Shown here is a 112-nucleotide RNA sequence from Caminicella sporogenes, a member of the family "Guanidine-I riboswitch aptamer". The pairing is the family consensus, mapped onto this sequence. The match comes from Rfam's covariance-model search (68 bits).
RNA sequence: UGAAAGCGCACCUAGGGUUCCGAUUAAAAUUUUUAUUUUAAUGGCAGGUCCGAGUGGUGCGGAUGUUACAUGAUUUGUAAUGUUACACCGUGGGGAGAAAAGCCCGGACGGG
Numbered sequence: 001u002g003a004a005a006g007c008g009c010a011c012c013u014a015g016g017g018u019u020c021c022g023a024u025u026a027a028a029a030u031u032u033u034u035a036u037u038u039u040a041a042u043g044g045c046a047g048g049u050c051c052g053a054g055u056g057g058u059g060c061g062g063a064u065g066u067u068a069c070a071u072g073a074u075u076u077g078u079a080a081u082g083u084u085a086c087a088c089c090g091u092g093g094g095g096a097g098a099a100a101a102g103c104c105c106g107g108a109c110g111g112g
Stems, first nucleotide, its partner, number of pairs: 007061006015051002020048002022045001023042006062084008086107001088110001093105003